[Rfam]
The record is a 102-nucleotide sequence from Nocardiopsis eucommiae, which matches "Glycine riboswitch aptamer" in Rfam. It scores 65 bits against the family's covariance model. About the family: This family represents the bacterial glycine riboswitch.
RNA sequence: UGACCCCGUACGGGAGAGUGUCCGCGUAUCCAGCGUGGGCCGCCGAAGGAGCAAUCCCUCCCCGAAGACAACCUCUCAGGCACAGCGGACCGUACGGGCGAG
Numbered sequence: 001u002g003a004c005c006c007c008g009u010a011c012g013g014g015a016g017a018g019u020g021u022c023c024g025c026g027u028a029u030c031c032a033g034c035g036u037g038g039g040c041c042g043c044c045g046a047a048g049g050a051g052c053a054a055u056c057c058c059u060c061c062c063c064g065a066a067g068a069c070a071a072c073c074u075c076u077c078a079g080g081c082a083c084a085g086c087g088g089a090c091c092g093u094a095c096g097g098g099c100g101a102g
Stems, first nucleotide, its partner, number of pairs: 006097008020040006042081003045077002049075003055068002